[Rfam]
RNA sequence: UAGCAAGACUCCAGUGUGCUUGGGUCUGCAGUGACUCUAUGCAUUCCUACAGUUCUUGCCAGAACAGGGCUGAAACGGGUUGAGACCUUGCCCUGCCCUAUUGAGAGCAAGGUCAUAGAAAAAACAAAG
Numbered sequence: 001u002a003g004c005a006a007g008a009c010u011c012c013a014g015u016g017u018g019c020u021u022g023g024g025u026c027u028g029c030a031g032u033g034a035c036u037c038u039a040u041g042c043a044u045u046c047c048u049a050c051a052g053u054u055c056u057u058g059c060c061a062g063a064a065c066a067g068g069g070c071u072g073a074a075a076c077g078g079g080u081u082g083a084g085a086c087c088u089u090g091c092c093c094u095g096c097c098c099u100a101u102u103g104a105g106a107g108c109a110a111g112g113u114c115a116u117a118g119a120a121a122a123a124a125c126a127a128a129g
Base pairs, nucleotide, nucleotide: 003059004058005057006056007055008054017043018042019041022037023036024035025034026033071122086112087111088110089109090108091107093105094104
Record summary: Rfam assigns this 129-nucleotide RNA from Sciurus vulgaris to the family "Small nucleolar RNA SNORA9". Its Rfam clan is "SNORA9 clan". ACA9 is a member of the H/ACA class of snoRNA that guide the sites of modification of uridines to pseudouridines. Its family is annotated with RNA processing and nucleolus in the Gene Ontology. Rfam 15.1 lists 1,202 matches to the family in 518 species.